RNA sequence: CCUGACCCUAGAGGCCUUGCAGGUGUGGCUGCUGUGUCACAUGUGCAUCAGUAGGUGGCAGAGAGGAGAGAGAUUACAUCUAUGCUGUGAGUUAUGACCUAUGAUAUCUGAGUGAUUAGUAGUCUAAUAUU
Numbered sequence: 001c002c003u004g005a006c007c008c009u010a011g012a013g014g015c016c017u018u019g020c021a022g023g024u025g026u027g028g029c030u031g032c033u034g035u036g037u038c039a040c041a042u043g044u045g046c047a048u049c050a051g052u053a054g055g056u057g058g059c060a061g062a063g064a065g066g067a068g069a070g071a072g073a074u075u076a077c078a079u080c081u082a083u084g085c086u087g088u089g090a091g092u093u094a095u096g097a098c099c100u101a102u103g104a105u106a107u108c109u110g111a112g113u114g115a116u117u118a119g120u121a122g123u124c125u126a127a128u129a130u131u
Stems, first nucleotide, its partner, number of pairs: 002061003006057001007055004013049002019046003024041006068128001071125007083114002086111001089108001091105004
Small nucleolar RNA SNORA17: a 131-nucleotide sequence from Mus spicilegus. The family's RNA type in Rfam is H/ACA-box small nucleolar RNA. The base pairs follow the family's consensus structure, which was predicted with RNAalifold. Taxonomically the source falls in Mus (Eukaryota, Deuterostomia, Glires, Muridae).